[Rfam]
RNA sequence: UAGAACAAUGUAGAUAAGGGAAGUCGGCAAAAUAGAUCCGUAACUUCGGGAAAAGGAUUGGCUCUAAGGGUUGGGUGUUUUGGGCUAUUGUUUUUGUUGCCACUUUGGACCCUACUUAAGGGGGUUUUUUCCUACUAAAAGUUCUGCCUUUUCGGAGGCGGGGUUUUUGGCCGGGAGAUUACUUUUUUUUGUAGGGACUGGGGAGGGACUGCUUUAGCUUACUUGCGUUUGGCAGGUGGUUGGUAAUUUUUUCGUUUCUGCUUUCUUUUCGGAGAAGGCGGAAAUGGAAUCAUUCCCCACCGGAAUGCUUGUAAUUAACCGGAACACAAUUAACAACCGACUUAGAACUGGUACGGACAAGGGGAAUCUGACUGUCUAAUUAAAACUUAGCAUUGCGAUGGCCAGAAAGUGGUGUUGACGCAAUGUGAUUUCUGCCCAGUGCUCUGAAUGUCAAUGUGAAGAAAUUCAACCAAGCGCGGGUAAACGGCGGGAGUAACUAUGACUCUCUUAAGGUAGCCAAAUGCCUCGUCAUCUAAUUAGUGACGCGCAUGAAUGGAUUAACGAGAUUCCCACUGUCCCUAUCUACUAUCUAGCGAAACC
Numbered sequence: 001u002a003g004a005a006c007a008a009u010g011u012a013g014a015u016a017a018g019g020g021a022a023g024u025c026g027g028c029a030a031a032a033u034a035g036a037u038c039c040g041u042a043a044c045u046u047c048g049g050g051a052a053a054a055g056g057a058u059u060g061g062c063u064c065u066a067a068g069g070g071u072u073g074g075g076u077g078u079u080u081u082g083g084g085c086u087a088u089u090g091u092u093u094u095u096g097u098u099g100c101c102a103c104u105u106u107g108g109a110c111c112c113u114a115c116u117u118a119a120g121g122g123g124g125u126u127u128u129u130u131c132c133u134a135c136u137a138a139a140a141g142u143u144c145u146g147c148c149u150u151u152u153c154g155g156a157g158g159c160g161g162g163g164u165u166u167u168u169g170g171c172c173g174g175g176a177g178a179u180u181a182c183u184u185u186u187u188u189u190u191g192u193a194g195g196g197a198c199u200g201g202g203g204a205g206g207g208a209c210u211g212c213u214u215u216a217g218c219u220u221a222c223u224u225g226c227g228u229u230u231g232g233c234a235g236g237u238g239g240u241u242g243g244u245a246a247u248u249u250u251u252u253c254g255u256u257u258c259u260g261c262u263u264u265c266u267u268u269u270c271g272g273a274g275a276a277g278g279c280g281g282a283a284a285u286g287g288a289a290u291c292a293u294u295c296c297c298c299a300c301c302g303g304a305a306u307g308c309u310u311g312u313a314a315u316u317a318a319c320c321g322g323a324a325c326a327c328a329a330u331u332a333a334c335a336a337c338c339g340a341c342u343u344a345g346a347a348c349u350g351g352u353a354c355g356g357a358c359a360a361g362g363g364g365a366a367u368c369u370g371a372c373u374g375u376c377u378a379a380u381u382a383a384a385a386c387u388u389a390g391c392a393u394u395g396c397g398a399u400g401g402c403c404a405g406a407a408a409g410u411g412g413u414g415u416u417g418a419c420g421c422a423a424u425g426u427g428a429u430u431u432c433u434g435c436c437c438a439g440u441g442c443u444c445u446g447a448a449u450g451u452c453a454a455u456g457u458g459a460a461g462a463a464a465u466u467c468a469a470c471c472a473a474g475c476g477c478g479g480g481u482a483a484a485c486g487g488c489g490g491g492a493g494u495a496a497c498u499a500u501g502a503c504u505c506u507c508u509u510a511a512g513g514u515a516g517c518c519a520a521a522u523g524c525c526u527c528g529u530c531a532u533c534u535a536a537u538u539a540g541u542g543a544c545g546c547g548c549a550u551g552a553a554u555g556g557a558u559u560a561a562c563g564a565g566a567u568u569c570c571c572a573c574u575g576u577c578c579c580u581a582u583c584u585a586c587u588a589u590c591u592a593g594c595g596a597a598a599c600c
Stems, first nucleotide, its partner, number of pairs: 001592004010586007018578003035059005044049001060349002063346006069338005075327009084218003090212002097206002100203001106200003110196006118188008128178005350354001362571007369563002374386002390426008401413004430557003434488003439485002441481004446477001449476003457468004489507006508512001528544005
The record is a 600-nucleotide part of an RNA from Smittium mucronatum, which matches "Eukaryotic large subunit ribosomal RNA" in Rfam. Pairs were carried over by alignment from the consensus structure, which is taken from published work. The match comes from Rfam's covariance-model search (3161 bits).